The family of this 73-nucleotide sequence from Bifidobacterium boum is "tRNA".
It scores 73 bits against the family's covariance model.
The organism belongs to Bifidobacterium, within Bacteria.
By type it is a transfer RNA.
[Rfam]
RNA sequence: GGGUUUGUAGCUCAGUGGAUAGAGCGUCUGUCUCCGGAACAGAAGGUCGUGGGUUCGAAUCCCAUCAAGCCCA
Numbered sequence: 001g002g003g004u005u006u007g008u009a010g011c012u013c014a015g016u017g018g019a020u021a022g023a024g025c026g027u028c029u030g031u032c033u034c035c036g037g038a039a040c041a042g043a044a045g046g047u048c049g050u051g052g053g054u055u056c057g058a059a060u061c062c063c064a065u066c067a068a069g070c071c072c073a
Base pairs, nucleotide, nucleotide: 001072002071003070004069005068006067007066010025011024012023013022027043028042029041030040031039049065050064051063052062053061